[Rfam]
RNA: Makes More Granules Regulator RNA (mmgR)
Organism: Phenylobacterium hankyongense
RNA sequence: UGGGGUCGCCCAUCCUGGGCGUUUCCUCCCUAAUGACUUCAAAGCCGGGCGCUUGCGCCCGGCUCUUUUUUUGAUCUCA
Numbered sequence: 001u002g003g004g005g006u007c008g009c010c011c012a013u014c015c016u017g018g019g020c021g022u023u024u025c026c027u028c029c030c031u032a033a034u035g036a037c038u039u040c041a042a043a044g045c046c047g048g049g050c051g052c053u054u055g056c057g058c059c060c061g062g063c064u065c066u067u068u069u070u071u072u073g074a075u076c077u078c079a
Stems, first nucleotide, its partner, number of pairs: 008020004043064009